[Rfam]
RNA: c-di-GMP-I riboswitch aptamer
RNA sequence: GAUUGAUAAAGGCAAAUCCAUCGAAAGGUGGAGACGCAAAACUAUAGGGGUUAAGGCGGCAUGUUCGCUAUACCAGCCAGUUACCGAU
Number, nucleotide and partner (000 for none) at each position: 001g000002a000003u000004u000005g000006a000007u000008a000009a000010a000011g000012g037013c036014a000015a000016a000017u032018c031019c030020a029021u028022c027023g000024a000025a000026a000027g022028g021029u020030g019031g018032a017033g000034a000035c000036g013037c012038a000039a000040a082041a081042c080043u079044a000045u000046a000047g078048g077049g074050g073051u072052u000053a000054a000055g000056g068057c067058g066059g065060c000061a000062u000063g000064u000065u059066c058067g057068c056069u000070a000071u000072a051073c050074c049075a000076g000077c048078c047079a043080g042081u041082u040083a000084c000085c000086g000087a000088u000